[Rfam]
RNA sequence: AUGUACCGCUCGUACACUGCGGUACCUCCGCGCCAUCCAGGCCCACCUGGCGAUUGCUCACUACGUGUUGUUGGCC
Numbered sequence: 001a002u003g004u005a006c007c008g009c010u011c012g013u014a015c016a017c018u019g020c021g022g023u024a025c026c027u028c029c030g031c032g033c034c035a036u037c038c039a040g041g042c043c044c045a046c047c048u049g050g051c052g053a054u055u056g057c058u059c060a061c062u063a064c065g066u067g068u069u070g071u072u073g074g075c076c
Stems, first nucleotide, its partner, number of pairs: 002016005021034003025030001047074007
Overview
Xanthomonas sRNA sX9: a 76-nucleotide RNA from Xanthomonas oryzae. It scores 76 bits against the family's covariance model. It is annotated as a small RNA.